[Rfam]
RNA sequence: UUACCGCAAUUUGUAUGGAGUUGGAGCGUUUGCCUACGUUUGCCGCUAGGGGCGCUGUUCCAACUGCAUACAAAAUUGCGGUA
Numbered sequence: 001u002u003a004c005c006g007c008a009a010u011u012u013g014u015a016u017g018g019a020g021u022u023g024g025a026g027c028g029u030u031u032g033c034c035u036a037c038g039u040u041u042g043c044c045g046c047u048a049g050g051g052g053c054g055c056u057g058u059u060c061c062a063a064c065u066g067c068a069u070a071c072a073a074a075a076u077u078g079c080g081g082u083a
Base pairs, nucleotide, nucleotide: 008077009076010074011073012072013071014070015069017067019065020064021063022062023061024060025059026058027057028056033051034050035049038046039045
A member of the RNA family "mir-2807 microRNA precursor family" from Bombyx mori, 83 nucleotides long. Taxonomically the source falls in Bombyx (Eukaryota, Opisthokonta, Heteroneura, Bombycoidea).